[Rfam]
RNA: wcaG RNA
RNA sequence: GAUGGUUUCUUGCUUAUCCUAAGAGCAAGUGGUGCGGAUGGGGUUCAUACUCCCGCCCUGUUUCUUGCUUCAGAUAAAGAGCAAGUGGCGUGCAUGAAA
Numbered sequence: 001g002a003u004g005g006u007u008u009c010u011u012g013c014u015u016a017u018c019c020u021a022a023g024a025g026c027a028a029g030u031g032g033u034g035c036g037g038a039u040g041g042g043g044u045u046c047a048u049a050c051u052c053c054c055g056c057c058c059u060g061u062u063u064c065u066u067g068c069u070u071c072a073g074a075u076a077a078a079g080a081g082c083a084a085g086u087g088g089c090g091u092g093c094a095u096g097a098a099a
Stems, first nucleotide, its partner, number of pairs: 009029007039055005057073001059072002064085006